[Rfam]
RNA sequence: UAAUGCCUUUGUUUGGCCAAGCUAUGUGCAAAUAUCACAAAUUAAAAAUUUGGUUAAGCAGUUAGGCUGGACCUAAUAUUUUAGAAAAACCUAAUUUUUUUUGUGGACCCAUUUUCGAUAUUUACUCACAAAUGGAAUUCAAGGGGAACAACUUCGGUCUCAGCACUUUAAUUAUUCUUCUCGUUCCCACCUAAUUUCGCAAUUUAUUGUCCUUGACUUCUACCACGAGAAAAAAAUUAAGAAAAUGCAACGCUGCCCGUGCAGGGUUUUCUGAGCGGGAUGAAAAAAUCAGACAAAUAUCCAAGUUAUGAGUAAUUACUUUGUUGGAAGGAGGGAGCAGAGCAUAAGGAAAUUCUUAAAACUGUUAUGUAUAUAAAGGAAGAACCAUUUCUAGUUAUUUCACUUUUUGAUACUUGUCAACUAUCUUAGUAAAAAUACAGAACUCUAUAAAGAACCACAGAAAAAUCGACAGCAAUGACAAGCAUUGACAUUAACAACUUACAAAAUACCUUUCAACAAGCUAUGAAUAUGAGCGGCUCCCCAGGCGCUGU
Numbered sequence: 001u002a003a004u005g006c007c008u009u010u011g012u013u014u015g016g017c018c019a020a021g022c023u024a025u026g027u028g029c030a031a032a033u034a035u036c037a038c039a040a041a042u043u044a045a046a047a048a049u050u051u052g053g054u055u056a057a058g059c060a061g062u063u064a065g066g067c068u069g070g071a072c073c074u075a076a077u078a079u080u081u082u083a084g085a086a087a088a089a090c091c092u093a094a095u096u097u098u099u100u101u102u103g104u105g106g107a108c109c110c111a112u113u114u115u116c117g118a119u120a121u122u123u124a125c126u127c128a129c130a131a132a133u134g135g136a137a138u139u140c141a142a143g144g145g146g147a148a149c150a151a152c153u154u155c156g157g158u159c160u161c162a163g164c165a166c167u168u169u170a171a172u173u174a175u176u177c178u179u180c181u182c183g184u185u186c187c188c189a190c191c192u193a194a195u196u197u198c199g200c201a202a203u204u205u206a207u208u209g210u211c212c213u214u215g216a217c218u219u220c221u222a223c224c225a226c227g228a229g230a231a232a233a234a235a236a237u238u239a240a241g242a243a244a245a246u247g248c249a250a251c252g253c254u255g256c257c258c259g260u261g262c263a264g265g266g267u268u269u270u271c272u273g274a275g276c277g278g279g280a281u282g283a284a285a286a287a288a289u290c291a292g293a294c295a296a297a298u299a300u301c302c303a304a305g306u307u308a309u310g311a312g313u314a315a316u317u318a319c320u321u322u323g324u325u326g327g328a329a330g331g332a333g334g335g336a337g338c339a340g341a342g343c344a345u346a347a348g349g350a351a352a353u354u355c356u357u358a359a360a361a362c363u364g365u366u367a368u369g370u371a372u373a374u375a376a377a378g379g380a381a382g383a384a385c386c387a388u389u390u391c392u393a394g395u396u397a398u399u400u401c402a403c404u405u406u407u408u409g410a411u412a413c414u415u416g417u418c419a420a421c422u423a424u425c426u427u428a429g430u431a432a433a434a435a436u437a438c439a440g441a442a443c444u445c446u447a448u449a450a451a452g453a454a455c456c457a458c459a460g461a462a463a464a465a466u467c468g469a470c471a472g473c474a475a476u477g478a479c480a481a482g483c484a485u486u487g488a489c490a491u492u493a494a495c496a497a498c499u500u501a502c503a504a505a506a507u508a509c510c511u512u513u514c515a516a517c518a519a520g521c522u523a524u525g526a527a528u529a530u531g532a533g534c535g536g537c538u539c540c541c542c543a544g545g546c547g548c549u550g551u
Stems, first nucleotide, its partner, number of pairs: 001487006010060012025039004061479004066473004073084004096465011108335003112330009122315007130307002133303004143155004157294004163248003167241007175234002178231007199210004256279005262273004339446004345358005362440004369413004375406004379401004383396003420430004512527004532549004537544002